[Rfam]
RNA sequence: AAUCCUGCUGCAGUUAAAAAGCUCGUAGUUGGAUCUCGGCGGUGCGUGUUUCCCGUCUACGGUGUCGUGUUACAAGCCCGCGCUCGUCGCGGGUCACUUCGUCCGUAGCGGCGCCCACCGCCACCUCUGGUCUGCUCUCUCCCGGGCUCGGCCUUCACUGGUCGGGACCGGGUGGCAGACAGUUCACUUUGAAAAAAUUAGAGUGUUCAAAGCGGGCGCCAGUCGCUCGAAUAAUGGUGCAUGGAAUGAUGGAUAGGACCCCCGUCUUAUUUCUGCCGGUCUCAGGGACGGAGGUAAUGAUUGGAAGAGGCAGCCGGGGGCAUGCGUAUUGCGGCGGGAGAAGUGAAAUUUGAUGAUCGUCGCAAGACGUCCGAGAGCGAAAGCACUUGUCAAGAGUGUCUUUUUUAGAUCAAGAACGAAAGUCGGAGGCUCGAAGACGAUCAGAUACCGUCGUAGUUCCGACCAUAAACGUUGCCAACCGGCGAUCUGCGUUGGUCUCGAUUUUGGGACCAGGCGGGACACCCCGGGGAAACCAGAGUUUUGAGGUUCCGGGGGGAGUAUGGUUGCAAAACUGAAACUUAAAGGAAU
Dot-bracket structure: ..........(.(.....(.(.((...(((....................................................................................................................................................................................................................................................................................((((((..(...((((.(((..((((((((...(((......)))......))))))))..)).......((....)).).))))..)..)).))))....)))...)).)....((((((....(...((((.........))))...).))))))..........((((((.((...(((((.(..(((..........))).).)))))...))...((....))...)))....))))).).(((......((((....))))....)))........